[Rfam]
RNA: tRNA
Organism: Propionivibrio dicarboxylicus
RNA sequence: GCCCCUGUAGCAUGAAGGUCGUGCAGUUGAUUUGUAAUCAUCAGGCCGUGGUUCGAUUCCGCGCAGGGGCA
Numbered sequence: 001g002c003c004c005c006u007g008u009a010g011c012a013u014g015a016a017g018g019u020c021g022u023g024c025a026g027u028u029g030a031u032u033u034g035u036a037a038u039c040a041u042c043a044g045g046c047c048g049u050g051g052u053u054c055g056a057u058u059c060c061g062c063g064c065a066g067g068g069g070c071a
Stems, first nucleotide, its partner, number of pairs: 001070007010024004026042001028040003047063005